[Rfam]
RNA sequence: UCGGAUAUGGUGUAACGGCUAACAUUGCCGCCUUUCACGCGGCAGCUCGGGGUUCGAUUCCCCGUAUCCGAG
Dot-bracket structure: (((((((..((((........)))).(((((.......)))))....(((((.......)))))))))))).
Rfam assigns this 72-nucleotide sequence from Phlebopus sp. FC_14 to the family "tRNA". Taxonomically the source falls in Phlebopus (Eukaryota, Opisthokonta, Agaricomycetes, Sclerodermatineae).